RNA sequence: UUUUCUACAAAUCGGAAUGACCUGAAAUUUGGAGCGUGUGUUCAUCACAAAUAAGGGAAUCUACUAAAAAUGUCAAAAAAAUAUUUUACAUGAAAAAGAUUGACCAAAAUACCCCCGAAAAGUUUUAGGGGUAUUUUGGUCAAUUUUGUUUACGAAUUAUGUUUUUCAUAUUUUUAUUUCGUGCGCCUCACUAAGAUGUACAUACACUCCAAAUUUCAGAUAAUUCCGAUUUGUAGAAAA
Dot-bracket structure: ((((((((((((((((((.(.(((((((((((((.((((((.(((.................(..((((((((.(((((................(((((((((((((((((((..((....))....)))))))))))))))))))..............))))).))))))))..).................))).)))))).))))))))))))).).))))))))))))))))))
A member of the RNA family "MIR8562 microRNA precursor family" from Amborella trichopoda, 240 nucleotides long. A search with the family's covariance model found it, with a score of 221 bits. Pairs were carried over by alignment from the consensus structure, which was predicted with RNAalifold.